Record summary
6C RNA: a 75-nucleotide sequence from Pseudonocardia sp. MH-G8. The family's RNA type in Rfam is cis-regulatory element.
[Rfam]
RNA sequence: CACGGUUCAGCUCGACCCCCCGGAGCUGAACCACCGACGGCCCCCGCCAAUCCCCCCUGGCGGGGGCCGUCCCAU
Numbered sequence: 001c002a003c004g005g006u007u008c009a010g011c012u013c014g015a016c017c018c019c020c021c022g023g024a025g026c027u028g029a030a031c032c033a034c035c036g037a038c039g040g041c042c043c044c045c046g047c048c049a050a051u052c053c054c055c056c057c058u059g060g061c062g063g064g065g066g067c068c069g070u071c072c073c074a075u
Stems, first nucleotide, its partner, number of pairs: 004032010036071013
It scores 77 bits against the family's covariance model. Rfam links the family to the GO term sporulation. The organism belongs to Pseudonocardia, within Bacteria.